[Rfam]
RNA sequence: UGAGUCGGCCAGGCGGUCGCGUCGAACGGUAGUUCCACUGUUGGUGGUUUUCCCGUUUGCCGAGGAACGUCCGGGCUCCACAGAGCAGGGUGGUGGCUAACGGCCACCCGGGGUGACCCGCGGGACAGUGCCACAGAAAACAGACCGCCUGUGCACGCAAGUGCACAGGUAAGGGUGAAACGGUGCGUGUAAGAGACCACCAGCAUCCUUGGUGACAAGGAUGGCUAGGUAAACCCCACCCGGAGCAAGACCAGACAGUGUGUGUUUGAGGGCUGCUCGCCUGAGCACACGGGUAGGUCGCUGGAGCUGCACAGUAAUGUGCCGCCUAGAUGGAUGGCCGCUCAAUGACAGAACCCGGCGUAUCGGCCGACUCAUCCG
Numbered sequence: 001u002g003a004g005u006c007g008g009c010c011a012g013g014c015g016g017u018c019g020c021g022u023c024g025a026a027c028g029g030u031a032g033u034u035c036c037a038c039u040g041u042u043g044g045u046g047g048u049u050u051u052c053c054c055g056u057u058u059g060c061c062g063a064g065g066a067a068c069g070u071c072c073g074g075g076c077u078c079c080a081c082a083g084a085g086c087a088g089g090g091u092g093g094u095g096g097c098u099a100a101c102g103g104c105c106a107c108c109c110g111g112g113g114u115g116a117c118c119c120g121c122g123g124g125a126c127a128g129u130g131c132c133a134c135a136g137a138a139a140a141c142a143g144a145c146c147g148c149c150u151g152u153g154c155a156c157g158c159a160a161g162u163g164c165a166c167a168g169g170u171a172a173g174g175g176u177g178a179a180a181c182g183g184u185g186c187g188u189g190u191a192a193g194a195g196a197c198c199a200c201c202a203g204c205a206u207c208c209u210u211g212g213u214g215a216c217a218a219g220g221a222u223g224g225c226u227a228g229g230u231a232a233a234c235c236c237c238a239c240c241c242g243g244a245g246c247a248a249g250a251c252c253a254g255a256c257a258g259u260g261u262g263u264g265u266u267u268g269a270g271g272g273c274u275g276c277u278c279g280c281c282u283g284a285g286c287a288c289a290c291g292g293g294u295a296g297g298u299c300g301c302u303g304g305a306g307c308u309g310c311a312c313a314g315u316a317a318u319g320u321g322c323c324g325c326c327u328a329g330a331u332g333g334a335u336g337g338c339c340g341c342u343c344a345a346u347g348a349c350a351g352a353a354c355c356c357g358g359c360g361u362a363u364c365g366g367c368c369g370a371c372u373c374a375u376c377c378g
Stems, first nucleotide, its partner, number of pairs: 001374010011363001012342007020062002023059006067361003071358005076245004083278004088241005093107005108122001109120004123236002128234002130230003145174002147170009182201004187197002203225001204223008249299004258290006270282004306325002309322005